Shown here is a 72-nucleotide RNA sequence from Wollemia nobilis, a member of the family "Plastid-ycf2 5UTR RNA". Pairs were carried over by alignment from the consensus structure, which was predicted with LocARNA. Plastid ycf2 is a non-coding RNA (ncRNA) recognised in plastids. It was found in the prime untranslated region (5UTR) of ycf2 genes, it presents a tRNA-like motif which suggests it can be involved in mRNA maturation, particularly involved in defining the precise 5' end of the transcript. The literature on the family includes a 2023 paper in Plant Commun by Richter et al., "Retrograde signaling in plants: A critical review focusing on the GUN pathway and beyond". Rfam's curators put it in the seed alignment.

RNA sequence: UGCAUCCAGCAGGAAUUGAACCCGUGACUUCCCCAUUAUGAGUUGGGCGCUUUGACCAUUCAGCCUUAGAUG
Numbered sequence: 001u002g003c004a005u006c007c008a009g010c011a012g013g014a015a016u017u018g019a020a021c022c023c024g025u026g027a028c029u030u031c032c033c034c035a036u037u038a039u040g041a042g043u044u045g046g047g048c049g050c051u052u053u054g055a056c057c058a059u060u061c062a063g064c065c066u067u068a069g070a071u072g
Stems, first nucleotide, its partner, number of pairs: 003072004009025002012022002038067001040065001042064006049057001